[Rfam]
RNA sequence: UCUAGAACUCGAGAUAUGGGCUGAAAAUUGAACAUUUUCUAGGCUGCAUGAUAGAUUUGGACUUCUUCGUUGUUGCUAUAAUUUGGACUUGAAAACGGCCUUUUUAAAUCUUGGACUCCACAUGAAAGUUGUAGGCCUAUGUCUUACCUAAUAUA
Number, nucleotide and partner (000 for none) at each position: 001u000002c000003u153004a152005g000006a000007a149008c000009u146010c000011g145012a144013g143014a142015u141016a140017u139018g138019g137020g136021c134022u133023g132024a000025a130026a000027a129028u128029u127030g000031a000032a000033c000034a000035u000036u122037u000038u000039c000040u000041a000042g118043g117044c000045u115046g000047c000048a112049u000050g110051a109052u108053a000054g105055a104056u000057u000058u000059g100060g099061a000062c098063u097064u000065c000066u000067u000068c000069g000070u000071u000072g088073u087074u086075g000076c000077u000078a000079u000080a000081a000082u000083u000084u000085g000086g074087a073088c072089u000090u000091g000092a000093a000094a000095a000096c000097g063098g062099c060100c059101u000102u000103u000104u055105u054106a000107a000108a052109u051110c050111u000112u048113g000114g000115a045116c000117u043118c042119c000120a000121c000122a036123u000124g000125a000126a000127a029128g028129u027130u025131g000132u023133a022134g021135g000136c020137c019138u018139a017140u016141g015142u014143c013144u012145u011146a009147c000148c000149u007150a000151a000152u004153a003154u000155a000
The family of this 155-nucleotide sequence from Populus alba is "MIR2912 microRNA precursor family". The source organism's lineage runs through Eukaryota, Magnoliopsida, rosids, Salicaceae and Populus. Its family is annotated with RISC complex and miRNA-mediated post-transcriptional gene silencing in the Gene Ontology.